Background
A member of the RNA family "Bacterial large subunit ribosomal RNA" from Loigolactobacillus rennini, 339 nucleotides of a longer RNA. Taxonomically the source falls in Loigolactobacillus rennini (Bacteria, Bacillota, Bacilli, Lactobacillaceae).
[Rfam]
RNA sequence: CGAGUGAACUCUCGUUAAGGAACUCGGCAAAAUAACCCCGUAACUUCGGGAAAAGGGGUGCUGGUCUAACGACCAGCCGCAGUGAAUAGGCCCAGGCGACUGUUUAUCAAAAACACAGGUCUCUGCUAAAUCGUAAGAUGACGUAUAGGGGCUGACGCCUGCCCGGUGCUGGAAGGUUAAGUGGACGUGUUAGCCCGUAAGGGCAACGCACCGAAAUGAAGCCCCAGUAAACGGCGGCCGUAACUAUAACGGUCCUAAGGUAGCGAAAUUCCUUGUCGGGUAAGUUCCGACCCGCACGAAAGGCGUAACGAUCUGGGCACUGUCUCGACGAGAGACUCG
Numbered sequence: 001c002g003a004g005u006g007a008a009c010u011c012u013c014g015u016u017a018a019g020g021a022a023c024u025c026g027g028c029a030a031a032a033u034a035a036c037c038c039c040g041u042a043a044c045u046u047c048g049g050g051a052a053a054a055g056g057g058g059u060g061c062u063g064g065u066c067u068a069a070c071g072a073c074c075a076g077c078c079g080c081a082g083u084g085a086a087u088a089g090g091c092c093c094a095g096g097c098g099a100c101u102g103u104u105u106a107u108c109a110a111a112a113a114c115a116c117a118g119g120u121c122u123c124u125g126c127u128a129a130a131u132c133g134u135a136a137g138a139u140g141a142c143g144u145a146u147a148g149g150g151g152c153u154g155a156c157g158c159c160u161g162c163c164c165g166g167u168g169c170u171g172g173a174a175g176g177u178u179a180a181g182u183g184g185a186c187g188u189g190u191u192a193g194c195c196c197g198u199a200a201g202g203g204c205a206a207c208g209c210a211c212c213g214a215a216a217u218g219a220a221g222c223c224c225c226a227g228u229a230a231a232c233g234g235c236g237g238c239c240g241u242a243a244c245u246a247u248a249a250c251g252g253u254c255c256u257a258a259g260g261u262a263g264c265g266a267a268a269u270u271c272c273u274u275g276u277c278g279g280g281u282a283a284g285u286u287c288c289g290a291c292c293c294g295c296a297c298g299a300a301a302g303g304c305g306u307a308a309c310g311a312u313c314u315g316g317g318c319a320c321u322g323u324c325u326c327g328a329c330g331a332g333a334g335a336c337u338c339g
Stems, first nucleotide, its partner, number of pairs: 001339004009334008018325003035059005044049001060077007078082001090318007097310002101115003118153008126143001130139003156305004161235003166232002168228005175223003181217002187211004193204004236254006255259001265292001275291006
Dot-bracket structure: ((((....((((((((.(((..............(((((....(....).....)))))(((((((....)))))))(...).......(((((((((..(((.........)))..(((((((((...(((....)))...)..))))))))..((((.(((..(((((((..(((...((....((((..((((....))))...))))....))...))))))))..)))))((((((.......))))))(...).....(.........((((((.....))))))).........))))...)).)))))))....))).)))))))).))))